[Rfam]
RNA sequence: ACCGGAGAUUGUUACGAGUCUCUGUAAGCUGAGUGGCGGUCAUGGAGGGCUGAAUUCACUUUACGAUGGAAUCACGGAUGCUUGUCCGCCUUGUCGAAAACAGUGUCUUUCAGACAUCGGUGUCAACAUCCUGGCUUGCGCGUAGGCGUGGGCUUGGAGGUUGUUCAAUACUGGGGAACCGCCCGAGGGUAGCAAUACAGCAGGGAAAACUCAGAGCACUGACUCGUCUGGAAGAUGGCACGUUGGAGAGGAUAGGGCAAGUAGCUGCCAUCGGGGGUGGGGACUACCCCUUUUUUU
Number, nucleotide and partner (000 for none) at each position: 001a040002c039003c038004g023005g022006a021007g020008a019009u018010u017011g000012u000013u000014a000015c000016g000017a010018g009019u008020c007021u006022c005023u004024g000025u000026a000027a000028g037029c036030u035031g000032a000033g000034u000035g030036g029037c028038g003039g002040u001041c000042a295043u000044g293045g292046a291047g290048g289049g288050c000051u286052g000053a285054a000055u283056u282057c281058a000059c279060u000061u276062u275063a000064c273065g272066a271067u270068g269069g268070a000071a000072u000073c000074a000075c267076g266077g265078a000079u263080g262081c261082u260083u259084g258085u257086c256087c255088g000089c251090c250091u249092u248093g000094u246095c000096g000097a000098a000099a244100a243101c242102a000103g241104u240105g239106u238107c234108u233109u000110u231111c230112a229113g228114a227115c000116a224117u222118c221119g220120g219121u218122g217123u216124c163125a162126a161127c160128a000129u158130c157131c156132u000133g154134g153135c152136u151137u150138g149139c148140g147141c146142g000143u000144a000145g000146g141147c140148g139149u138150g137151g136152g135153c134154u133155u000156g131157g130158a129159g000160g127161u126162u125163g124164u170165u000166c000167a000168a000169u000170a164171c214172u213173g212174g211175g210176g000177a000178a000179c000180c000181g000182c205183c204184c203185g000186a000187g000188g000189g198190u197191a196192g000193c000194a000195a000196u191197a190198c189199a000200g000201c000202a000203g184204g183205g182206a000207a000208a000209a000210c175211u174212c173213a172214g171215a000216g123217c122218a121219c120220u119221g118222a117223c000224u116225c000226g000227u114228c113229u112230g111231g110232a000233a108234g107235a000236u000237g000238g106239c105240a104241c103242g101243u100244u099245g000246g094247a000248g092249a091250g090251g089252a000253u000254a000255g087256g086257g085258c084259a083260a082261g081262u080263a079264g000265c077266u076267g075268c069269c068270a067271u066272c065273g064274g000275g062276g061277g000278u000279g059280g000281g057282g056283a055284c000285u053286a051287c000288c049289c048290c047291u046292u045293u044294u000295u042296u000297u000
RNA: Metazoan signal recognition particle RNA
Organism: Syncephalastrum racemosum